[Rfam]
RNA sequence: UCUGGCGAUGAUGACACACUUGCCCUCACUGAGAACGUGGUUCAGUAAUGAGAACCUCACCGAGUACUCAGCUGAGCCAGA
Numbered sequence: 001u002c003u004g005g006c007g008a009u010g011a012u013g014a015c016a017c018a019c020u021u022g023c024c025c026u027c028a029c030u031g032a033g034a035a036c037g038u039g040g041u042u043c044a045g046u047a048a049u050g051a052g053a054a055c056c057u058c059a060c061c062g063a064g065u066a067c068u069c070a071g072c073u074g075a076g077c078c079a080g081a
Stems, first nucleotide, its partner, number of pairs: 001081006
Small nucleolar RNA SNORD103/SNORD85: an 81-nucleotide sequence from Cairina moschata. Gene Ontology terms of the family: nucleolus and RNA processing. A reference for the family is Vitali et al. (2003), "Identification of 13 novel human modification guide RNAs", Nucleic Acids Res. A search with the family's covariance model found it, with a score of 75 bits. The source organism's lineage runs through Eukaryota, Opisthokonta, Bilateria, Craniata and Cairina. It is annotated as a C/D-box small nucleolar RNA.